The family of this 368-nucleotide RNA sequence from Streptococcus ratti is "Bacterial RNase P class B". Its family is annotated with ribonuclease P activity, dimeric ribonuclease P complex and tRNA processing in the Gene Ontology. Pairs were carried over by alignment from the consensus structure, which is taken from published work. The sequence is in the family's curated seed alignment. Ribonuclease P (RNase P) is a ubiquitous endoribonuclease, found in archaea, bacteria and eukarya as well as chloroplasts and mitochondria.

RNA sequence: AUUUUUGGAUAAUCGCGUGAUAAUAUUUUAUCAUGAGGAAAGUCCAUGCUAGCACUGGCUGUGAUGCCGGUAGUGUUUGUGCCAGGCGAACAAAUAAGCCUGGGGAUGUGUUUUGCACAUUACGGCGGAUAAAAUUGCUAAGUCUUCGGAUAGGUGAGAGUCAUCCUGAAAGUGCCACAGUGACGUAGCUUUUAUGGAAACAUAAAAGGUGGAACGCGGUAAACCCCUCAAGCUAGCAACCCAAACUUUGGUAGGGGCAUGGAAGAGCCGGAAACAGAACGGUCUUUUCUGACUGCAUAGCAGUAGACAGAUGAUUAUCGAAGAAGGUGAGACCUAGUCAUCUUUGGAACAAAACAUGGCUUAUAGAA
Number, nucleotide and partner (000 for none) at each position: 001a000002u000003u000004u368005u367006u366007g364008g319009a318010u317011a316012a315013u314014c313015g000016c035017g034018u033019g032020a031021u030022a000023a000024u000025a000026u000027u000028u000029u000030a021031u020032c019033a018034u017035g016036a000037g000038g000039a000040a362041a361042g360043u000044c359045c358046a357047u356048g355049c236050u235051a234052g233053c232054a071055c070056u069057g068058g067059c066060u000061g000062u000063g000064a000065u000066g059067c058068c057069g056070g055071u054072a000073g000074u000075g000076u000077u231078u230079g229080u000081g227082c103083c102084a101085g100086g099087c098088g000089a000090a000091c000092a000093a000094a000095u000096a000097a000098g087099c086100c085101u084102g083103g082104g123105g121106a120107u119108g118109u117110g116111u000112u000113u000114u000115g000116c110117a109118c108119a107120u106121u105122a000123c104124g226125g225126c000127g166128g165129a164130u163131a000132a000133a000134a000135u157136u156137g155138c154139u000140a000141a000142g151143u150144c149145u000146u000147c000148g000149g144150a143151u142152a000153g000154g138155u137156g136157a135158g000159a000160g000161u000162c000163a130164u129165c128166c127167u000168g000169a000170a000171a000172g224173u223174g220175c219176c218177a000178c000179a000180g000181u000182g000183a000184c000185g000186u000187a000188g000189c208190u207191u206192u205193u204194a203195u202196g201197g000198a000199a000200a000201c196202a195203u194204a193205a192206a191207a190208g189209g000210u000211g000212g000213a000214a000215c000216g000217c000218g176219g175220u174221a000222a000223a173224c172225c125226c124227c081228u000229c079230a078231a077232g053233c052234u051235a050236g049237c000238a000239a000240c256241c255242c254243a000244a000245a000246c000247u000248u000249u000250g000251g000252u000253a000254g242255g241256g240257g000258c000259a000260u291261g290262g289263a288264a287265g286266a285267g000268c000269c000270g000271g000272a000273a000274a000275c000276a000277g000278a000279a000280c000281g000282g000283u000284c000285u266286u265287u264288u263289c262290u261291g260292a304293c303294u302295g301296c300297a000298u000299a000300g296301c295302a294303g293304u292305a000306g000307a000308c000309a000310g000311a000312u000313g014314a013315u012316u011317a010318u009319c008320g000321a000322a000323g345324a344325a343326g342327g341328u340329g339330a338331g000332a000333c000334c000335u000336a000337g000338u330339c329340a328341u327342c326343u325344u324345u323346g000347g000348a000349a000350c000351a000352a000353a000354a000355c048356a047357u046358g045359g044360c042361u041362u040363a000364u007365a000366g006367a005368a004